[Rfam]
RNA sequence: AAACAAUCAAAAGCGCCUGAGCUGGGGAAAUCGGAUCACAGCCCCAGCAGACGAGGUGGAGGUUCAUCGACAAUUCGGCGGAUGCCUCCCGACCGCGAUGCCCGGUUGUCAUGCUUUCCAGCAAAACACACAAGCGAUUGUGUGACACAGAGGGGAAAGCCGGCAUCAAU
Number, nucleotide and partner (000 for none) at each position: 001a000002a000003a000004c000005a000006a000007u000008c000009a000010a000011a000012a000013g000014c000015g000016c000017c000018u000019g000020a000021g048022c047023u046024g045025g044026g043027g042028a000029a000030a000031u000032c000033g000034g000035a000036u000037c000038a000039c000040a000041g000042c027043c026044c025045c024046a023047g022048c021049a000050g000051a000052c000053g000054a000055g000056g000057u000058g089059g088060a087061g086062g085063u000064u000065c000066a000067u078068c077069g076070a075071c000072a000073a000074u000075u070076c069077g068078g067079c000080g000081g000082a000083u000084g000085c062086c061087u060088c059089c058090c108091g107092a106093c105094c104095g103096c000097g000098a000099u000100g000101c000102c000103c095104g094105g093106u092107u091108g090109u000110c000111a000112u000113g160114c159115u158116u157117u156118c155119c154120a000121g000122c000123a000124a000125a000126a000127c144128a143129c142130a141131c140132a139133a138134g000135c000136g000137a000138u133139u132140g131141u130142g129143u128144g127145a000146c000147a000148c000149a000150g000151a000152g000153g000154g119155g118156a117157a116158a115159g114160c113161c000162g000163g000164c000165a000166u000167c000168a000169a000170u000